[Rfam]
RNA sequence: GGCUCUAUGAUUUUCUGCCUAUGUUGCAGUAUACGCUAUUCCGAUGUACAGUAUGAGAAGAUAUUCUAUUGAAGAUGAGAGCC
Numbered sequence: 001g002g003c004u005c006u007a008u009g010a011u012u013u014u015c016u017g018c019c020u021a022u023g024u025u026g027c028a029g030u031a032u033a034c035g036c037u038a039u040u041c042c043g044a045u046g047u048a049c050a051g052u053a054u055g056a057g058a059a060g061a062u063a064u065u066c067u068a069u070u071g072a073a074g075a076u077g078a079g080a081g082c083c
Stems, first nucleotide, its partner, number of pairs: 001083005
Annotation
The record is an 83-nucleotide RNA from Abrus precatorius, which matches "Small nucleolar RNA U54" in Rfam. Rfam describes the family as follows. U54 is a C/D box small nucleolar RNA, which acts as a methylation guide for 18S ribosomal RNA in plants.